RNA: MIR2617 microRNA precursor family
Organism: Medicago truncatula
RNA sequence: AUAUAGUGUGACAUGCCCGUUUGGAAUUUACUCUGAUGUAUGAAUUAUUCACUAACUUUAAUUGAUUUUGGAUAAUGGGAUGUUACAAUGUU
Dot-bracket structure: ..(((.((((((((.((((((....................................................)))))))))))))).))).
Numbered sequence: 001a002u003a004u005a006g007u008g009u010g011a012c013a014u015g016c017c018c019g020u021u022u023g024g025a026a027u028u029u030a031c032u033c034u035g036a037u038g039u040a041u042g043a044a045u046u047a048u049u050c051a052c053u054a055a056c057u058u059u060a061a062u063u064g065a066u067u068u069u070g071g072a073u074a075a076u077g078g079g080a081u082g083u084u085a086c087a088a089u090g091u092u
Stems, first nucleotide, its partner, number of pairs: 003091003007087008016079006